[Rfam]
RNA: mir-19 microRNA precursor family
Organism: Otolemur garnettii
RNA sequence: AGUCACGAUUAGUUUUGCAGGUUUGCAUUUCAGCGUAUUGUGUAUAUCAGGCUGUGCAAAUCCAUGCAAAACUGAUUGUGAUA
Numbered sequence: 001a002g003u004c005a006c007g008a009u010u011a012g013u014u015u016u017g018c019a020g021g022u023u024u025g026c027a028u029u030u031c032a033g034c035g036u037a038u039u040g041u042g043u044a045u046a047u048c049a050g051g052c053u054g055u056g057c058a059a060a061u062c063c064a065u066g067c068a069a070a071a072c073u074g075a076u077u078g079u080g081a082u083a
Base pairs, nucleotide, nucleotide: 003081004080005079006078007077008076009075010074011073012072013071014070015069016068017067018066019065020063021062022060023059024058025057026056027055028054032053033052034051